[Rfam]
RNA sequence: AUUGAAGUGAUGAUCCUUUCCCCGUAUUAUCGACUAUGAUUAUAAUAUGCGUUCUCAACAGAAGAAACUUUCAAGCUAGUACUUUGCUCCAU
Numbered sequence: 001a002u003u004g005a006a007g008u009g010a011u012g013a014u015c016c017u018u019u020c021c022c023c024g025u026a027u028u029a030u031c032g033a034c035u036a037u038g039a040u041u042a043u044a045a046u047a048u049g050c051g052u053u054c055u056c057a058a059c060a061g062a063a064g065a066a067a068c069u070u071u072c073a074a075g076c077u078a079g080u081a082c083u084u085u086g087c088u089c090c091a092u
Base pairs, nucleotide, nucleotide: 001092002091004089005088
A member of the RNA family "Small nucleolar RNA Z103" from Papaver nudicaule, 92 nucleotides long. The literature on the family includes a 2003 paper in Nucleic Acids Res by Chen et al., "The high diversity of snoRNAs in plants: identification and comparative study of 120 snoRNA genes from Oryza sativa".